A member of the RNA family "SAM riboswitch aptamer (S box leader)" from Enteractinococcus coprophilus, 101 nucleotides long. The organism belongs to Enteractinococcus, within Bacteria.
RNA sequence: AAACCAUUCAGAGCGACCGAGAGAUCUGGCUCGUUGACGUCGCAGCAACCACCACCUUGUUUCACCAAGUUGGACGGUGCUACUGCCAGGAACAAUGGAGU
Numbered sequence: 001a002a003a004c005c006a007u008u009c010a011g012a013g014c015g016a017c018c019g020a021g022a023g024a025u026c027u028g029g030c031u032c033g034u035u036g037a038c039g040u041c042g043c044a045g046c047a048a049c050c051a052c053c054a055c056c057u058u059g060u061u062u063c064a065c066c067a068a069g070u071u072g073g074a075c076g077g078u079g080c081u082a083c084u085g086c087c088a089g090g091a092a093c094a095a096u097g098g099a100g101u
Stems, first nucleotide, its partner, number of pairs: 001101001004098005013043005021032003026089004044081004049077002052072001054070001085093001